This 365-nucleotide RNA sequence from Rhodopseudomonas palustris belongs to the Rfam family "Alphaproteobacteria transfer-messenger RNA".
Pairs were carried over by alignment from the consensus structure, which is taken from published work.
The family's RNA type in Rfam is non-coding RNA gene.
NCBI's taxonomy places the organism under Bacteria, Pseudomonadota, Nitrobacteraceae, Rhodopseudomonas, Rhodopseudomonas palustris.
[Rfam]
RNA sequence: CCCCUUCCCUGCGGCGUCACGAUGCUUAUAUUCGAUCCUGCCGGUUCGCCGGCUAUGACAAUAAACGGUCGUCGCAAUAAACCAUUCGGACCCGGGGGCGGUACCCGGCGCCUCCACCCAAGCCCGCUCGCCAGCUUUCAGCGCGGGUUUCGGCGGGGGCGAAAUAGGAUCGACGAGGGCGUAAAGGGCGAACUUUUGUUCGGUAUGGUUCCGCCGAUAUCGGGCCAAUGCAAUAGUUGCCAACGACAACUUUGCUCCGGUUGCUCAGGCAGCGUAACGCUGUUUGAAAGACCAAGUCUAAAGUCCUAACGGGUUAAGCUCCGUUAGGCGGGGUUCGGAGGCACCUGGCAACAGAAGCCUCCACU
Number, nucleotide and partner (000 for none) at each position: 001c000002c000003c000004c000005u000006u000007c000008c000009c000010u000011g000012c000013g000014g000015c000016g000017u000018c000019a000020c000021g000022a000023u000024g000025c000026u000027u000028a000029u000030a000031u000032u000033c000034g000035a000036u000037c000038c000039u000040g053041c052042c051043g050044g049045u000046u000047c000048g000049c044050c043051g042052g041053c040054u000055a000056u000057g200058a199059c198060a197061a196062u000063a000064a000065a000066c000067g194068g193069u192070c190071g189072u188073c187074g000075c000076a000077a000078u000079a000080a000081a000082c179083c178084a000085u000086u176087c175088g174089g000090a000091c000092c108093c107094g106095g105096g104097g000098g000099c000100g000101g000102u000103a000104c096105c095106c094107g093108g092109c161110g160111c159112c158113u157114c156115c155116a000117c000118c000119c000120a000121a000122g000123c000124c000125c000126g000127c000128u000129c000130g000131c000132c000133a000134g000135c000136u000137u000138u000139c000140a000141g000142c000143g000144c000145g000146g000147g000148u000149u000150u000151c000152g000153g000154c000155g115156g114157g113158g112159g111160c110161g109162a000163a000164a000165u000166a000167g000168g000169a000170u000171c000172g000173a000174c088175g087176a086177g000178g083179g082180c000181g000182u000183a000184a000185a000186g000187g073188g072189c071190g070191a000192a069193c068194u067195u000196u061197u060198g059199u058200u057201c216202g215203g214204u213205a000206u227207g226208g225209u000210u000211c223212c222213g204214c203215c202216g201217a000218u000219a000220u000221c000222g212223g211224g000225c208226c207227a206228a000229u000230g000231c000232a000233a000234u000235a000236g000237u000238u000239g000240c000241c000242a000243a000244c000245g000246a000247c000248a000249a000250c000251u000252u000253u000254g000255c000256u000257c000258c000259g000260g000261u000262u000263g000264c000265u000266c000267a000268g000269g000270c000271a000272g000273c000274g000275u000276a000277a000278c000279g000280c000281u000282g000283u000284u000285u000286g000287a000288a000289a000290g000291a000292c000293c000294a000295a000296g000297u000298c000299u000300a000301a000302a000303g000304u000305c000306c000307u000308a000309a000310c000311g000312g000313g000314u000315u000316a000317a000318g000319c000320u000321c000322c000323g000324u000325u000326a000327g000328g000329c000330g000331g346332g345333g344334u343335u000336c000337g362338g361339a360340g359341g358342c357343a334344c333345c332346u331347g000348g000349c000350a000351a000352c000353a000354g000355a000356a000357g342358c341359c340360u339361c338362c337363a000364c000365u000